mir-74 microRNA precursor family: a 75-nucleotide RNA sequence.
RNA sequence: GCUGCGCAUUUGGGCUUCCCUCUCUUUCCCAGCCUGCAAUCGGGCUGGCAAGACAAGGCAGUCUACAUGCGUAGC
Numbered sequence: 001g002c003u004g005c006g007c008a009u010u011u012g013g014g015c016u017u018c019c020c021u022c023u024c025u026u027u028c029c030c031a032g033c034c035u036g037c038a039a040u041c042g043g044g045c046u047g048g049c050a051a052g053a054c055a056a057g058g059c060a061g062u063c064u065a066c067a068u069g070c071g072u073a074g075c
Stems, first nucleotide, its partner, number of pairs: 002074008012064005018058002021055001023053004029048008

Description
It scores 74 bits against the family's covariance model. Its family is annotated with RISC complex and miRNA-mediated post-transcriptional gene silencing in the Gene Ontology.